The record is a 65-nucleotide RNA from Glycine soja, which matches "MIR4359 microRNA precursor family" in Rfam. The family has 2 seed sequences and 187 matches in Rfam 15.1. It scores 82 bits against the family's covariance model. Rfam links the family to the GO terms RISC complex and miRNA-mediated post-transcriptional gene silencing.
[Rfam]
Nucleotides: 065
Base pairs, nucleotide, nucleotide: 001065002064003063004062005061006060007059008058009057010056011055013053014052015051016050017049018048019047020046021045022044023043024042025041026040027039028038029037030036031035
Number, partner (000 for none) and nucleotide at each position: 001065a002064u003063g004062u005061u006060a007059a008058c009057g010056a011055a012000g013053c014052g015051a016050c017049g018048u019047u020046a021045a022044c023043a024042u025041c026040g027039g028038u029037u030036u031035u032000c033000a034000u035031a036030a037029a038028a039027u040026c041025g042024a043023u044022g045021u046020u047019a048018a049017c050016g051015u052014c053013g054000c055011u056010u057009c058008g059007u060006u061005a062004a063003c064002a065001u